[Rfam]
RNA sequence: AUGUUCAAGAAGAAGCCAUCCGCUUCUCACCUUAUGGCUCAAGUCGAUAAGGUAUCUUUAGGUCCUGAGUAUAUUUGUGCUCAUGAUUUGUUUAGAGAGACGGGUGGUAAUUCACCCGUCUUAUUUAUUUUUU
Number, nucleotide and partner (000 for none) at each position: 001a000002u000003g000004u000005u000006c000007a000008a000009g000010a000011a027012g026013a025014a024015g023016c022017c000018a000019u000020c000021c000022g016023c015024u014025u013026c012027u011028c000029a053030c052031c051032u000033u000034a048035u047036g000037g044038c043039u000040c000041a000042a000043g038044u037045c000046g000047a035048u034049a000050a000051g031052g030053u029054a000055u000056c000057u000058u000059u000060a000061g000062g000063u000064c000065c000066u000067g000068a000069g000070u000071a000072u000073a000074u000075u000076u000077g000078u000079g000080c000081u000082c000083a000084u000085g000086a000087u000088u000089u000090g000091u000092u000093u000094a000095g000096a000097g000098a000099g120100a119101c118102g117103g116104g115105u114106g113107g112108u000109a000110a000111u000112u107113c106114a105115c104116c103117c102118g101119u100120c099121u000122u000123a000124u000125u000126u000127a000128u000129u000130u000131u000132u000133u000
This 133-nucleotide RNA sequence from Desulfitobacterium metallireducens belongs to the Rfam family "Ribosomal protein L20 leader". The base pairs follow the family's consensus structure, which was predicted with CMfinder. It is annotated as a cis-regulatory leader. The organism belongs to Desulfitobacterium metallireducens, within Bacteria.